[Rfam]
RNA sequence: GAGUCUAUGAUGACAAACCAAUAUCAUGAAGAGAGGUGAUGUCAUAAAUAUCAUGUUCAGUAUGGUUCUGCUGUGGCCC
Dot-bracket structure: (.(((..((...........................................................))..)..)).)